[Rfam]
RNA sequence: CACACGCGAAGCUUGGGAUUGGCCGGGAGAAAUCCGGUCUGUUCCGCCGGUGGCUGUUUAUGCAGCUGUUCGUUUCGCGGGGGUUAAACCGGAAACUAGGAGUAUA
Numbered sequence: 001c002a003c004a005c006g007c008g009a010a011g012c013u014u015g016g017g018a019u020u021g022g023c024c025g026g027g028a029g030a031a032a033u034c035c036g037g038u039c040u041g042u043u044c045c046g047c048c049g050g051u052g053g054c055u056g057u058u059u060a061u062g063c064a065g066c067u068g069u070u071c072g073u074u075u076c077g078c079g080g081g082g083g084u085u086a087a088a089c090c091g092g093a094a095a096c097u098a099g100g101a102g103u104a105u106a
Base pairs, nucleotide, nucleotide: 001082003080005079006078007077008076009075010074011073016045017044024036025035027034052067053066054065055064056063057062
Dot-bracket structure: (.(.(((((((....((......((.(......))).......))......((((((....)))))).....)))))))).)........................
The record is a 106-nucleotide RNA sequence from Rhizobium sp. Root149, which matches "rpsB sRNA" in Rfam. Pairs were carried over by alignment from the consensus structure, which is taken from published work. A search with the family's covariance model found it, with a score of 40 bits. NCBI's taxonomy places the organism under Bacteria, Pseudomonadati, Pseudomonadota, Hyphomicrobiales, Rhizobium.